[Rfam]
RNA sequence: CUCUGGAAAGCCCGGCGCCGAGAGGCAGCCGGCACCGAAGGAGUAAGUGCGGGCACAGCCUGCGCGAAUCUCUCAGGUACCGGGACAGAG
Numbered sequence: 001c002u003c004u005g006g007a008a009a010g011c012c013c014g015g016c017g018c019c020g021a022g023a024g025g026c027a028g029c030c031g032g033c034a035c036c037g038a039a040g041g042a043g044u045a046a047g048u049g050c051g052g053g054c055a056c057a058g059c060c061u062g063c064g065c066g067a068a069u070c071u072c073u074c075a076g077g078u079a080c081c082g083g084g085a086c087a088g089a090g
Stems, first nucleotide, its partner, number of pairs: 001090005012032004034078003037074002041072003047065008

Source information:
Rfam assigns this 90-nucleotide sequence from Rhodovarius crocodyli to the family "Glycine riboswitch aptamer". This family represents the bacterial glycine riboswitch.